This 86-nucleotide RNA sequence from Solanum tuberosum belongs to the Rfam family "MIR8024 microRNA precursor family".

Nucleotides: 086
Base pairs, nucleotide, nucleotide: 001084002083003082004081005080006079009076010075011074012073013072014071017068018067019066021064025059026058027057032053033052034051035050036049
Number, partner (000 for none) and nucleotide at each position: 001084u002083u003082g004081a005080a006079g007000g008000a009076u010075u011074u012073g013072a014071a015000g016000a017068c018067u019066u020000c021064a022000a023000c024000u025059u026058g027057c028000a029000u030000a031000c032053u033052u034051g035050a036049a037000a038000g039000a040000u041000u042000u043000g044000a045000a046000g047000a048000c049036u050035u051034c052033a053032a054000c055000u056000g057027g058026c059025a060000u061000a062000g063000u064021u065000a066019g067018a068017g069000g070000a071014u072013u073012u074011g075010a076009a077000g078000a079006c080005u081004u082003c083002a084001a085000c086000c